[Rfam]
RNA sequence: CGAGUGAAUCACGGCCAAGGAACUCGGCAAAAUGGACCUGUAACUUCGGGAGAAGGGUCGCUUCCUCUUGGCAACAAGAGAAGCCGCAGUGAAAAGGCCCAGGCGACUGUUUAACAAAAACACAUGGCUUUGCUAACGCGCAAGCGGACGUAUAAGGCCUGACACCUGCCCGGUGCCGGAAGGUUAAGAGGGGACGUUAGCCGCAAGGCGAAGCGUUGAAUCGAAGCCCCGGUAAACGGCGGCCGUAACUAUAACGGUCCUAAGGUAGCGAAAUUCCUUGUCGGGUAAGUUCCGACCUGCACGAAUGGUGUAACGAUCUGGGCGCUGUCUCAGCCGUGAGCUCG
Dot-bracket structure: ((((....(((((((..(((..............(((((....(....).....)))))(((((.(((((....))))))))))(...).......(((((((((..(((.........)))...((((((((...(((....)))...)..)))))))...((((.(((..(((((((..(((...((...(((((..((......))...)))))...))...))))))))..)))))((((((.......))))))(...).....(.........((((((.....))))))).........))))...)).)))))))....)))..))))))).))))

This 344-nucleotide part of an RNA from Hymenobacter sp. 5317J-9 belongs to the Rfam family "Bacterial large subunit ribosomal RNA". The family's consensus secondary structure is taken from published work.